Pseudomonas sRNA P14: a 145-nucleotide RNA sequence from Pseudomonas aeruginosa. By type it is a small RNA. Pairs were carried over by alignment from the consensus structure, which was predicted with WAR. The organism belongs to Pseudomonas aeruginosa, within Bacteria.
[Rfam]
RNA sequence: CUGGAUAUUUUUUGAACAAACGACACUCCAACUACUGCUAAAGUCGGGGGGACUAAAAAAAAAGUUGCUCGGCUUGCGCUUGGUCAGUUUACUUACUACAAGUAAUGGGUAGUAUGUAGCCGGCUAAUUUCCCCGGCUGGGGAGA
Numbered sequence: 001c002u003g004g005a006u007a008u009u010u011u012u013u014g015a016a017c018a019a020a021c022g023a024c025a026c027u028c029c030a031a032c033u034a035c036u037g038c039u040a041a042a043g044u045c046g047g048g049g050g051g052a053c054u055a056a057a058a059a060a061a062a063a064g065u066u067g068c069u070c071g072g073c074u075u076g077c078g079c080u081u082g083g084u085c086a087g088u089u090u091a092c093u094u095a096c097u098a099c100a101a102g103u104a105a106u107g108g109g110u111a112g113u114a115u116g117u118a119g120c121c122g123g124c125u126a127a128u129u130u131c132c133c134c135g136g137c138u139g140g141g142g143a144g145a
Base pairs, nucleotide, nucleotide: 037079038078041075042074043073044072045071046070048069049068051066052065053064054063083124084123085122087120088119090118091117092116094114095113096112097111098110099109101106128145129144130143131142132141133140